[Rfam]
RNA sequence: GGGGCUGUCAUGGUUUCGACAGGUUUUCGUUUGAUUUGGACUGCAGUGGUGUGACUACCUUAAAGGUCAAACAAAAUUUAACUGGAAACAAUAACAGUUUACAAUUCGCUGCUUAAUUUAGCUUUCUAGCUUUGCAGCCUGGUAUUUAACGUUUUAGCCUUUGGGCAAUAGAUACCAACUAACCAACAAAGGAUAAGGUGAUGUAUCGCUCAGUGCAUCACACGAAAAUCAUCGGGCAACUCAAGGUUUUGAUUGGUCUGUUGUUCUGACCUUGAUGUAACACAAUAGACUAAACUGUAGACGUUCAAAUGUGGAACACUAUCUGGACGCGAGUUCGACUCUCGCCAGCUCCACCA
Numbered sequence: 001g002g003g004g005c006u007g008u009c010a011u012g013g014u015u016u017c018g019a020c021a022g023g024u025u026u027u028c029g030u031u032u033g034a035u036u037u038g039g040a041c042u043g044c045a046g047u048g049g050u051g052u053g054a055c056u057a058c059c060u061u062a063a064a065g066g067u068c069a070a071a072c073a074a075a076a077u078u079u080a081a082c083u084g085g086a087a088a089c090a091a092u093a094a095c096a097g098u099u100u101a102c103a104a105u106u107c108g109c110u111g112c113u114u115a116a117u118u119u120a121g122c123u124u125u126c127u128a129g130c131u132u133u134g135c136a137g138c139c140u141g142g143u144a145u146u147u148a149a150c151g152u153u154u155u156a157g158c159c160u161u162u163g164g165g166c167a168a169u170a171g172a173u174a175c176c177a178a179c180u181a182a183c184c185a186a187c188a189a190a191g192g193a194u195a196a197g198g199u200g201a202u203g204u205a206u207c208g209c210u211c212a213g214u215g216c217a218u219c220a221c222a223c224g225a226a227a228a229u230c231a232u233c234g235g236g237c238a239a240c241u242c243a244a245g246g247u248u249u250u251g252a253u254u255g256g257u258c259u260g261u262u263g264u265u266c267u268g269a270c271c272u273u274g275a276u277g278u279a280a281c282a283c284a285a286u287a288g289a290c291u292a293a294a295c296u297g298u299a300g301a302c303g304u305u306c307a308a309a310u311g312u313g314g315a316a317c318a319c320u321a322u323c324u325g326g327a328c329g330c331g332a333g334u335u336c337g338a339c340u341c342u343c344g345c346c347a348g349c350u351c352c353a354c355c356a
Stems, first nucleotide, its partner, number of pairs: 001352007020325005027318001031313001034310008044297004048056001049072002052069004105141001108138005143174006151166003158192006198221007208237004241275008251265003255290001257288001261284001329345005
transfer-messenger RNA: a 356-nucleotide sequence from Erysipelothrix sp. HDW6A. A search with the family's covariance model found it, with a score of 140 bits. Rfam's curators write: Bacterial tmRNA, also known as 10Sa RNA or SsrA, is named for its dual tRNA and mRNA-like properties. Taxonomically the source falls in Erysipelothrix (Bacteria, Bacillati, Erysipelotrichia, Erysipelotrichaceae).